The record is a 144-nucleotide sequence from Shewanella sp. SNU WT4, which matches "Glycine riboswitch aptamer" in Rfam.
A search with the family's covariance model found it, with a score of 64 bits.

RNA sequence: GGACGAGCCUCUGGAGAGACUGGCAUAGCUUAACGCCAGCGCCGAAGGCGCAAGCUGGAAUAAGGUUAACUUAUCUUGAUGACUAUCGAGAUGAUGUGAGCUUGUUUCAGUGAAACGCUCAGGCAAAAGGACAGAGGAGAGGGU
Dot-bracket structure: .......((((((......((((............)))).(((((..(((...(((((((((((....................................)))))))))))....))))).))).......)))))).......
Rfam describes the family as follows. This family represents the bacterial glycine riboswitch.